RNA sequence: UACGAAAAGAGAGGUGCAACACGCAGGUAGUUUUUGUGAGGUGACUAGGCCGUUUGAAGCAAAAAUGAGGGGCGUGCUUGCCGAGGUGUGAUUUCACUAGAUUGGUUUGAUCAUCGGCUGAGCAGGUUGAAUCCUAUCAGCUGUCAUUUGUGAAAACAAAUGGAGAGCUCUACGUUCC
Numbered sequence: 001u002a003c004g005a006a007a008a009g010a011g012a013g014g015u016g017c018a019a020c021a022c023g024c025a026g027g028u029a030g031u032u033u034u035u036g037u038g039a040g041g042u043g044a045c046u047a048g049g050c051c052g053u054u055u056g057a058a059g060c061a062a063a064a065a066u067g068a069g070g071g072g073c074g075u076g077c078u079u080g081c082c083g084a085g086g087u088g089u090g091a092u093u094u095c096a097c098u099a100g101a102u103u104g105g106u107u108u109g110a111u112c113a114u115c116g117g118c119u120g121a122g123c124a125g126g127u128u129g130a131a132u133c134c135u136a137u138c139a140g141c142u143g144u145c146a147u148u149u150g151u152g153a154a155a156a157c158a159a160a161u162g163g164a165g166a167g168c169u170c171u172a173c174g175u176u177c178c
Stems, first nucleotide, its partner, number of pairs: 008171004016081004021075004030066008085115004097104001116142006124135003144163007

The record is a 178-nucleotide RNA from Pasteurellaceae bacterium RH1A, which matches "Lysine riboswitch aptamer" in Rfam.
Riboswitches are metabolite binding domains within certain messenger RNAs that serve as precision sensors for their corresponding targets. Allosteric rearrangement of mRNA structure is mediated by ligand binding, and this results in modulation of gene expression. This family includes riboswitches that sense lysine in a number of genes involved in lysine metabolism, including lysC.
The source organism's lineage runs through Bacteria, Pseudomonadati, Gammaproteobacteria, Pasteurellales and Pasteurellaceae.